[Rfam]
RNA: MIR2086 microRNA precursor family
RNA sequence: UUCUCUUCUGUUUGUUUUUUUUUUUUUUUUUGCCUCCUGCCCAAAGGGGCAGGAGGCAAAAAAAAAAAAAAAAACAGAAGCGAGGAGAG
Numbered sequence: 001u002u003c004u005c006u007u008c009u010g011u012u013u014g015u016u017u018u019u020u021u022u023u024u025u026u027u028u029u030u031u032g033c034c035u036c037c038u039g040c041c042c043a044a045a046g047g048g049g050c051a052g053g054a055g056g057c058a059a060a061a062a063a064a065a066a067a068a069a070a071a072a073a074a075c076a077g078a079a080g081c082g083a084g085g086a087g088a089g
Stems, first nucleotide, its partner, number of pairs: 003087006014075004027065003030059013
Dot-bracket structure: ..((((((.....((((.........((((((((((((((((....)))))))))))))...)))......))))......))))))..